[Rfam]
RNA sequence: CUAGGUGUGACGAAGAAAAUCAUUCGGAUUCCCAUUGAUUUGUGCUAACAAAUGUGAGAUCUUAAACCAGCUACUUCUGACCUGA
Numbered sequence: 001c002u003a004g005g006u007g008u009g010a011c012g013a014a015g016a017a018a019a020u021c022a023u024u025c026g027g028a029u030u031c032c033c034a035u036u037g038a039u040u041u042g043u044g045c046u047a048a049c050a051a052a053u054g055u056g057a058g059a060u061c062u063u064a065a066a067c068c069a070g071c072u073a074c075u076u077c078u079g080a081c082c083u084g085a
Stems, first nucleotide, its partner, number of pairs: 002084004

Rfam assigns this 85-nucleotide RNA sequence from Triticum aestivum to the family "Small nucleolar RNA R12". From the family's description: snoR12 is a C/D box small nucleolar RNA, which acts as a methylation guide for 25S ribosomal RNA in plants. snoR12 has been alternatively named snoZ44 in Arabidopsis and snoZ131 in rice. A search with the family's covariance model found it, with a score of 75 bits. Rfam classes the family as a C/D-box small nucleolar RNA. Rfam links the family to the GO terms nucleolus and RNA processing. The family's consensus secondary structure was predicted with PFOLD.